[Rfam]
RNA sequence: GGAUAACACUGUUUUGUUAUACCCGGUCAAUAACACUAUAACACAUGGAAAAAUUAUCCUACGUGUCAUUGCGUUAUUGAUUGGGUAUAGCAGAAAGUGUUAUCC
Numbered sequence: 001g002g003a004u005a006a007c008a009c010u011g012u013u014u015u016g017u018u019a020u021a022c023c024c025g026g027u028c029a030a031u032a033a034c035a036c037u038a039u040a041a042c043a044c045a046u047g048g049a050a051a052a053a054u055u056a057u058c059c060u061a062c063g064u065g066u067c068a069u070u071g072c073g074u075u076a077u078u079g080a081u082u083g084g085g086u087a088u089a090g091c092a093g094a095a096a097g098u099g100u101u102a103u104c105c
Base pairs, nucleotide, nucleotide: 002104003103004102005101012095013094014093015092016091017090018089019088020087022085023084024083025082026081027080028079029078030077031076032075033074034073036071038069039068041066042065043064044063046061047060048059050057
Background
This 105-nucleotide RNA from Prunus armeniaca belongs to the Rfam family "MIR6274 microRNA precursor family". Pairs were carried over by alignment from the consensus structure, which was predicted with RNAalifold. A search with the family's covariance model found it, with a score of 81 bits. Lineage of the source: Eukaryota > Embryophyta > Rosales > Rosaceae > Prunus.